[Rfam]
RNA sequence: CCAAUGUCAGGCCACACCUGAGUGUGCCAUCCUGCGGAGGAUGCUGUCUGCGCCAGUGCCCCAGGAGGACUGGGA
Numbered sequence: 001c002c003a004a005u006g007u008c009a010g011g012c013c014a015c016a017c018c019u020g021a022g023u024g025u026g027c028c029a030u031c032c033u034g035c036g037g038a039g040g041a042u043g044c045u046g047u048c049u050g051c052g053c054c055a056g057u058g059c060c061c062c063a064g065g066a067g068g069a070c071u072g073g074g075a
Stems, first nucleotide, its partner, number of pairs: 006044001008050005013026004028043004033039001060074005

Flavivirus 3'UTR stem loop IV: a 75-nucleotide RNA from Orthoflavivirus koutangoense. The source organism's lineage runs through Viruses, Riboviria, Kitrinoviricota, Euflavivirus and Orthoflavivirus koutangoense. Rfam's curators write: Flavivirus 3' stem-loop IV (Flavivirus SLIV) is a conserved RNA that confers resistance to Xrn1 exonuclease. By type it is a cis-regulatory element.